The record is a 378-nucleotide sequence from Trueperella bernardiae, which matches "transfer-messenger RNA" in Rfam. The family's consensus secondary structure is taken from published work.
[Rfam]
RNA sequence: GGGGAUGAUCGGUUUCGACGGCGAUGACUGCCGAAGGGAAGCGGGUAGAGGAUGCAGAGUCAUCUCUUUAACGACUCUCUGCAAACAAUAACUGCCAACAAGCAGAAGUCCGACUUCGCCCUCGCUGCCUAAGCGCGAGCGCACUUAAGGAAGUCCGUCAGCCUCACGGUGCUUUCACGUGAGAAUUCUGGCGUCGUUUUUGAAAGCCACUGGGUCGGCACUGGGUUACCGGGUGCUGGCCGACACUAGGUAACUAUGCUCGUCAGCAACUUGUCUGUGUGAGUGCUGGAGCUGAAAACAACGCAAAGCAGACUGCACCCGGAGAAGUCUUGGGUUUUGCAUCGUCGGACGGGAGUUCAAUUCUCCCCAUCUCCACAU
Number, nucleotide and partner (000 for none) at each position: 001g374002g373003g372004g371005a370006u369007g368008a000009u000010c000011g000012g000013u000014u000015u000016c000017g000018a000019c347020g346021g345022c344023g343024a342025u341026g340027a000028c000029u000030g335031c334032c333033g000034a331035a330036g329037g328038g000039a000040a000041g000042c321043g320044g319045g318046u317047a067048g066049a065050g064051g063052a000053u083054g082055c081056a080057g079058a078059g077060u000061c000062a000063u051064c050065u049066c048067u047068u000069u000070a000071a000072c000073g000074a000075c000076u000077c059078u058079c057080u056081g055082c054083a053084a000085a000086c000087a000088a000089u000090a000091a000092c000093u000094g000095c000096c000097a000098a000099c000100a000101a000102g000103c000104a000105g000106a000107a000108g000109u000110c000111c000112g000113a000114c000115u000116u000117c000118g000119c000120c000121c139122u138123c137124g136125c000126u135127g134128c133129c000130u000131a000132a000133g128134c127135g126136c124137g123138a122139g121140c000141g000142c000143a000144c000145u000146u000147a000148a000149g000150g000151a000152a000153g000154u000155c000156c193157g192158u191159c190160a189161g188162c000163c183164u182165c181166a180167c179168g178169g000170u000171g207172c206173u205174u204175u203176c202177a000178c168179g167180u166181g165182a164183g163184a000185a000186u000187u000188c161189u160190g159191g158192c157193g156194u000195c000196g000197u000198u000199u000200u000201u000202g176203a175204a174205a173206g172207c171208c000209a000210c000211u000212g000213g241214g240215u239216c238217g237218g236219c235220a234221c233222u000223g000224g255225g254226u253227u252228a251229c250230c000231g000232g000233g221234u220235g219236c218237u217238g216239g215240c214241c213242g000243a000244c000245a000246c000247u000248a000249g000250g229251u228252a227253a226254c225255u224256a000257u000258g292259c291260u290261c289262g000263u000264c288265a287266g286267c000268a000269a284270c283271u282272u000273g313274u312275c311276u310277g000278u000279g309280u308281g000282a271283g270284u269285g000286c266287u265288g264289g261290a260291g259292c258293u000294g000295a000296a000297a000298a000299c000300a000301a000302c000303g000304c000305a000306a000307a000308g280309c279310a276311g275312a274313c273314u000315g000316c000317a046318c045319c044320c043321g042322g000323a000324g000325a000326a000327g000328u037329c036330u035331u034332g000333g032334g031335u030336u000337u000338u000339g000340c026341a025342u024343c023344g022345u021346c020347g019348g000349a000350c000351g367352g366353g365354a364355g363356u000357u000358c000359a000360a000361u000362u000363c355364u354365c353366c352367c351368c007369a006370u005371c004372u003373c002374c001375a000376c000377a000378u000
The family's RNA type in Rfam is non-coding RNA gene.